A member of the RNA family "Polynucleobacter-1 RNA", 142 nucleotides long. It is annotated as a small RNA.

RNA sequence: GGCUUGUGUCAGCCGGUUAACAGACACCCAUAAAACCUGGCACUUGGGUUGCACAGGGGACGGAAAUUCCGACGCAGUAGCGGAGACUUGUUGCCACUAUCCUUGACAGGACGCAAUUCAUGGUAUGAAAAGAAUUGGCACG
Numbered sequence: 001g002g003c004u005u006g007u008g009u010c011a012g013c014c015g016g017u018u019a020a021c022a023g024a025c026a027c028c029c030a031u032a033a034a035a036c037c038u039g040g041c042a043c044u045u046g047g048g049u050u051g052c053a054c055a056g057g058g059g060a061c062g063g064a065a066a067u068u069c070c071g072a073c074g075c076a077g078u079a080g081c082g083g084a085g086a087c088u089u090g091u092u093g094c095c096a097c098u099a100u101c102c103u104u105g106a107c108a109g110g111a112c113g114c115a116a117u118u119c120a121u122g123g124u125a126u127g128a129a130a131a132g133a134a135u136u137g138g139c140a141c142g
Stems, first nucleotide, its partner, number of pairs: 006027005037056003040052002042049002068084004089142003093139003101110002116135004